mir-932 microRNA precursor family: an 83-nucleotide sequence from Anopheles gambiae.
Rfam 15.1 lists 136 matches to the family in 136 species.
For this family Rfam cites "Evolutionary flux of canonical microRNAs and mirtrons in Drosophila" (Berezikov et al., Nat Genet, 2010).
NCBI's taxonomy places the organism under Eukaryota, Eumetazoa, Panarthropoda, Culicidae, Anopheles gambiae.
[Rfam]
RNA sequence: GACCGGCCUCAAUUCCGUAGUGCAUUGCAGUGUAGAACGGUUACAAGCACGACUGCAAGCAUUGUGGGAGUGAAGCCGUCCGC
Numbered sequence: 001g002a003c004c005g006g007c008c009u010c011a012a013u014u015c016c017g018u019a020g021u022g023c024a025u026u027g028c029a030g031u032g033u034a035g036a037a038c039g040g041u042u043a044c045a046a047g048c049a050c051g052a053c054u055g056c057a058a059g060c061a062u063u064g065u066g067g068g069a070g071u072g073a074a075g076c077c078g079u080c081c082g083c
Stems, first nucleotide, its partner, number of pairs: 006076002009073003014068005021061003025058007